[Rfam]
Nucleotides: 170
Base pairs, nucleotide, nucleotide: 016079017078018077020075021074022073023072024071032064033063034062035061036060037059038058039057083114084113085112086111087110088109089108090107091106092105093104094103115141116140118138119137120136121135122134123133124132125131147170149168
Number, partner (000 for none) and nucleotide at each position: 001000a002000c003000c004000u005000g006000g007000g008000g009000u010000a011000g012000a013000g014000g015000u016079g017078c018077u019000u020075u021074a022073a023072u024071a025000a026000a027000u028000a029000g030000u031000a032064a033063g034062u035061g036060u037059a038058a039057g040000g041000a042000g043000u044000c045000g046000g047000c048000a049000g050000g051000c052000g053000a054000g055000g056000a057039u058038u059037u060036a061035u062034g063033c064032u065000a066000a067000a068000a069000g070000g071024u072023a073022u074021u075020a076000u077018a078017g079016c080000c081000g082000a083114a084113g085112a086111a087110a088109u089108a090107a091106a092105u093104u094103u095000u096000u097000a098000u099000g100000u101000a102000a103094g104093g105092a106091u107090u108089u109088a110087u111086u112085u113084c114083u115141g116140g117000a118138u119137a120136u121135u122134c123133a124132u125131a126000g127000a128000a129000u130000a131125u132124g133123u134122g135121a136120a137119u138118a139000g140116c141115u142000g143000u144000c145000a146000c147170g148000a149168a150000a151000a152000g153000u154000g155000u156000u157000g158000a159000g160000c161000u162000a163000c164000a165000a166000g167000g168149u169000a170147c